RNA sequence: UUAGCAGAGAAUGUGUAUCAGCGUGGUGCGACAAAGGUGCGCCUAUCGCCGAAGGUGAUCUCUACGAAAUCGAGAAGGGGAAGGUAGGCAGUUGUCGUUCAAACUUCUUCCCAUUAGGCUCUACGACAAUCAUCUUCCCCUCAUUC
Numbered sequence: 001u002u003a004g005c006a007g008a009g010a011a012u013g014u015g016u017a018u019c020a021g022c023g024u025g026g027u028g029c030g031a032c033a034a035a036g037g038u039g040c041g042c043c044u045a046u047c048g049c050c051g052a053a054g055g056u057g058a059u060c061u062c063u064a065c066g067a068a069a070u071c072g073a074g075a076a077g078g079g080g081a082a083g084g085u086a087g088g089c090a091g092u093u094g095u096c097g098u099u100c101a102a103a104c105u106u107c108u109u110c111c112c113a114u115u116a117g118g119c120u121c122u123a124c125g126a127c128a129a130u131c132a133u134c135u136u137c138c139c140c141u142c143a144u145u146c
Stems, first nucleotide, its partner, number of pairs: 004065001006063005013042006077140009087130001091127004
small nucleolar RNA snoR135: a 146-nucleotide RNA from Eucalyptus grandis. Pairs were carried over by alignment from the consensus structure, which was predicted with RNAalifold. The family's RNA type in Rfam is H/ACA-box small nucleolar RNA. Its family is annotated with nucleolus and RNA processing in the Gene Ontology. The match comes from Rfam's covariance-model search (77 bits). A reference for the family is Chen and Wu (2009), "Mining small RNA sequencing data: a new approach to identify small nucleolar RNAs in Arabidopsis", Nucleic Acids Res.